[Rfam]
RNA: Bacterial RNase P class A
RNA sequence: AUUGCAAGCUGUCUUAUCGCCUUCCGAUUAUUCGGGGGGAGGAAAGUCCGGGCAACACAGAGCACCGUACCUGGGGAAACACAGGGUCUCGGUUUCGAAAGGAGCCGGGAACAGAAAGUGCCACAGAAAAUUAAACUACCCUCGGUAGUUAUCGGGGGAAAAGGUGAAAAGGCGAGGUAAGAGCUCACCGUCUCGUUUGGUAACAAACGGGUGCAUGGUAAACCUUUCGGGUUGUAAGGCCACAUACAUUUUUGCUCCCGGCCUGGUCGGGAUAAGGGCUGCUCGUCCGAAAUGCUGUAUCAGCAGGUAAAAAGGGGUAGGCUGCGUUAGAUAAAUGAUAGGAACCUUUUUCGGUUAUGCCGGAAAAGGAUACAGAACCCGGCUUAUAGGCUUGCAAUUUUU
Number, nucleotide and partner (000 for none) at each position: 001a398002u397003u396004g395005c394006a393007a392008g391009c390010u389011g387012u343013c342014u341015u340016a339017u338018c337019g000020c039021c038022u037023u036024c035025c034026g033027a032028u000029u000030a000031u000032u027033c026034g025035g024036g023037g022038g021039g020040a000041g000042g000043a000044a385045a384046g383047u000048c382049c381050g380051g379052g378053c234054a233055a232056c231057a000058c000059a000060g301061a300062g000063c000064a000065c230066c229067g228068u000069a226070c085071c084072u083073g082074g000075g000076g000077a000078a000079a000080c000081a000082c073083a072084g071085g070086g112087u110088c109089u108090c107091g106092g105093u104094u103095u102096c101097g000098a000099a000100a000101g096102g095103a094104g093105c092106c091107g090108g089109g088110a087111a000112c086113a225114g224115a000116a000117a000118g223119u222120g219121c218122c217123a000124c000125a000126g000127a000128a000129a000130a000131u000132u000133a000134a000135a000136c163137u162138a000139c158140c157141c156142u155143c154144g153145g152146u151147a000148g000149u000150u000151a146152u145153c144154g143155g142156g141157g140158g139159a000160a000161a000162a137163g136164g000165u000166g000167a000168a000169a000170a000171g189172g188173c000174g186175a185176g184177g000178u000179a000180a000181g000182a000183g000184c176185u175186c174187a000188c172189c171190g214191u000192c211193u000194c209195g208196u207197u206198u205199g204200g000201u000202a000203a000204c199205a198206a197207a196208c195209g194210g000211g192212u000213g000214c190215a000216u000217g122218g121219u120220a000221a000222a119223c118224c114225u113226u069227u000228c067229g066230g065231g056232u055233u054234g053235u000236a000237a000238g323239g322240c321241c320242a000243c000244a000245u000246a000247c000248a000249u313250u312251u311252u310253u309254g000255c000256u000257c000258c000259c000260g000261g000262c000263c000264u000265g000266g000267u000268c000269g000270g000271g000272a000273u000274a000275a000276g000277g000278g000279c000280u000281g000282c000283u000284c000285g000286u000287c000288c000289g000290a000291a000292a000293u305294g304295c303296u302297g000298u000299a000300u061301c060302a296303g295304c294305a293306g000307g000308u000309a253310a252311a251312a250313a249314g000315g000316g000317g000318u000319a000320g241321g240322c239323u238324g000325c000326g000327u000328u000329a000330g000331a000332u000333a000334a000335a000336u000337g018338a017339u016340a015341g014342g013343a012344a000345c000346c000347u000348u000349u000350u000351u000352c000353g000354g000355u000356u000357a000358u000359g000360c000361c000362g000363g000364a000365a000366a000367a000368g000369g000370a000371u000372a000373c000374a000375g000376a000377a000378c052379c051380c050381g049382g048383c046384u045385u044386a000387u011388a000389g010390g009391c008392u007393u006394g005395c004396a003397a002398u001399u000400u000401u000402u000